[Rfam]
RNA sequence: AGUCGCAUGUGCACCAGUCAAUGGCAGCCUCCAGUCCAGCUCAUAAAAAGCUUCAUGUUAGCCGAAUGGCAGUAGGCGGUGUCACGUCGUCCAUAUUUUUUAGAGUACAGUUGGACGAGACAUUUGUUUGGCUCCACCUC
Numbered sequence: 001a002g003u004c005g006c007a008u009g010u011g012c013a014c015c016a017g018u019c020a021a022u023g024g025c026a027g028c029c030u031c032c033a034g035u036c037c038a039g040c041u042c043a044u045a046a047a048a049a050g051c052u053u054c055a056u057g058u059u060a061g062c063c064g065a066a067u068g069g070c071a072g073u074a075g076g077c078g079g080u081g082u083c084a085c086g087u088c089g090u091c092c093a094u095a096u097u098u099u100u101u102a103g104a105g106u107a108c109a110g111u112u113g114g115a116c117g118a119g120a121c122a123u124u125u126g127u128u129u130g131g132c133u134c135c136a137c138c139u140c
Base pairs, nucleotide, nucleotide: 005070006069008068009067010066012064019057021056022055023054024053026052027051028050078135079134081132082131083130084129088117089116090115091114092113119128120127121126